FMN riboswitch aptamer (RFN element): a 115-nucleotide RNA sequence from Eubacterium pyruvativorans. About the family: The RFN element is a highly conserved domain that is found frequently in the 5'-untranslated regions of prokaryotic mRNAs that encode for flavin mononucleotide (FMN) biosynthesis and transport proteins. It scores 114 bits against the family's covariance model.

RNA sequence: AGGAUACUUCGGGGCAGGGUGAAAUUCCCAACCGGCGGUACAGCCCGCGAGCCGAAAGGCAUGAUCCGGUGAGAUUCCGGGGCCGACAGUAGAGUCUGGAUGAGAGAAGUAGCGU
Dot-bracket structure: ..(.((((((......(((.......))).[[((((((....[[))))....(.....).....(((((.......)))))]])).(((....]]))).......)))))).)..